The record is a 76-nucleotide RNA sequence from Bagarius yarrelli, which matches "U1A polyadenylation inhibition element (PIE)" in Rfam.

[Rfam]
RNA sequence: AUGAAAAGCAUUGCACCCAGGGUCUGGUCAGCCGGACAUUGUACCUGGAGCUUUUCUGUUUAAAUAAAACCAUCAU
Numbered sequence: 001a002u003g004a005a006a007a008g009c010a011u012u013g014c015a016c017c018c019a020g021g022g023u024c025u026g027g028u029c030a031g032c033c034g035g036a037c038a039u040u041g042u043a044c045c046u047g048g049a050g051c052u053u054u055u056c057u058g059u060u061u062a063a064a065u066a067a068a069a070c071c072a073u074c075a076u
Base pairs, nucleotide, nucleotide: 005054006053007052008051009050017048018047019046020045022037023036024035025034026033

NCBI's taxonomy places the organism under Eukaryota, Opisthokonta, Osteoglossocephalai, Sisoridae, Bagarius. The family's consensus secondary structure is taken from published work. The family's RNA type in Rfam is cis-regulatory element. For this family Rfam cites "The NMR structure of the 38 kDa U1A protein - PIE RNA complex reveals the basis of cooperativity in regulation of polyadenylation by human U1A protein" (Varani et al., Nat Struct Biol, 2000). It scores 65 bits against the family's covariance model.